[Rfam]
Record summary: Shown here is a 75-nucleotide RNA sequence from Jaculus jaculus, a member of the family "mir-3473 microRNA precursor family". The family's consensus secondary structure was predicted with RNAalifold. Lineage of the source: Eukaryota > Vertebrata > Eutheria > Boreoeutheria > Jaculus. The match comes from Rfam's covariance-model search (76 bits).
RNA sequence: ACCGCUAAGCCAUCUCUCCAGCCCUUAUUUUUAAUUUAUAAUAAAUUAGAGGGGCUGGAGAGAUGGCUUAGUGGU
Numbered sequence: 001a002c003c004g005c006u007a008a009g010c011c012a013u014c015u016c017u018c019c020a021g022c023c024c025u026u027a028u029u030u031u032u033a034a035u036u037u038a039u040a041a042u043a044a045a046u047u048a049g050a051g052g053g054g055c056u057g058g059a060g061a062g063a064u065g066g067c068u069u070a071g072u073g074g075u
Base pairs, nucleotide, nucleotide: 002074003073004072005071006070007069008068009067010066011065012064013063014062015061016060017059018058019057020056021055022054023053024052